[Rfam]
RNA sequence: UGAGGCAGGGAUCGCCCCCCAUCAGCGCGUCGCGCCCGUGGGGGCCAAACUG
Numbered sequence: 001u002g003a004g005g006c007a008g009g010g011a012u013c014g015c016c017c018c019c020c021a022u023c024a025g026c027g028c029g030u031c032g033c034g035c036c037c038g039u040g041g042g043g044g045c046c047a048a049a050c051u052g
Stems, first nucleotide, its partner, number of pairs: 016044007025035004
RNA: ffh sRNA
Organism: Litoreibacter arenae